RNA sequence: AGUCAUGAUUUCUAUUCCUUGAAAAUAGUGAUUGUGAUGAGCGGUGCGGACGUGUUGGCGCAUGUCCGCAUCGCGUU
Numbered sequence: 001a002g003u004c005a006u007g008a009u010u011u012c013u014a015u016u017c018c019u020u021g022a023a024a025a026u027a028g029u030g031a032u033u034g035u036g037a038u039g040a041g042c043g044g045u046g047c048g049g050a051c052g053u054g055u056u057g058g059c060g061c062a063u064g065u066c067c068g069c070a071u072c073g074c075g076u077u
Stems, first nucleotide, its partner, number of pairs: 002038007012028005041074003045070011
The family of this 77-nucleotide RNA from Enterobacteriaceae bacterium RIT714 is "SymR antitoxin". Rfam classes the family as an antitoxin RNA.